Rfam assigns this 88-nucleotide RNA sequence from Kingdonia uniflora to the family "mir-160 microRNA precursor family". NCBI's taxonomy places the organism under Eukaryota, Viridiplantae, Euphyllophyta, Circaeasteraceae, Kingdonia. On this family, see Rhoades et al., Cell 2002: "Prediction of plant microRNA targets". Pairs were carried over by alignment from the consensus structure, which was predicted with PFOLD. Its family is annotated with miRNA-mediated post-transcriptional gene silencing and RISC complex in the Gene Ontology.
[Rfam]
RNA sequence: GUUUGCCUGGCUCCCUGUAUGCCAACUAUGAAGCUUGUCAAGUGUGUAUGACAUUCUUACUAGUUGGCAUCAGAGGAGCCAUGCAGAC
Numbered sequence: 001g002u003u004u005g006c007c008u009g010g011c012u013c014c015c016u017g018u019a020u021g022c023c024a025a026c027u028a029u030g031a032a033g034c035u036u037g038u039c040a041a042g043u044g045u046g047u048a049u050g051a052c053a054u055u056c057u058u059a060c061u062a063g064u065u066g067g068c069a070u071c072a073g074a075g076g077a078g079c080c081a082u083g084c085a086g087a088c
Stems, first nucleotide, its partner, number of pairs: 001088006008081007016073001019070006029062001